Overview
Rfam assigns this 90-nucleotide RNA sequence from Zavarzinia aquatilis to the family "Glycine riboswitch aptamer". The match comes from Rfam's covariance-model search (71 bits). The family has 44 seed sequences and 9,425 matches in Rfam 15.1. Gene Ontology term of the family: glycine biosynthetic process.

RNA sequence: AUACCCCUUGAGGGAGAGACCGGGGCUUGCCCCGGCGCCGAAGGAGCAACCGCCCCGGAAACUCUCAGGCAAAAGGACCGCAAGGGGGAC
Numbered sequence: 001a002u003a004c005c006c007c008u009u010g011a012g013g014g015a016g017a018g019a020c021c022g023g024g025g026c027u028u029g030c031c032c033c034g035g036c037g038c039c040g041a042a043g044g045a046g047c048a049a050c051c052g053c054c055c056c057g058g059a060a061a062c063u064c065u066c067a068g069g070c071a072a073a074a075g076g077a078c079c080g081c082a083a084g085g086g087g088g089a090c
Base pairs, nucleotide, nucleotide: 006085007084008083009082010081012079013078020035021034022033023032037070038069039068040066041065044064045063046062050058051057
Dot-bracket structure: .....(((((.((......((((........)))).(((((..(((...((.....))...))))).))).......)).))))).....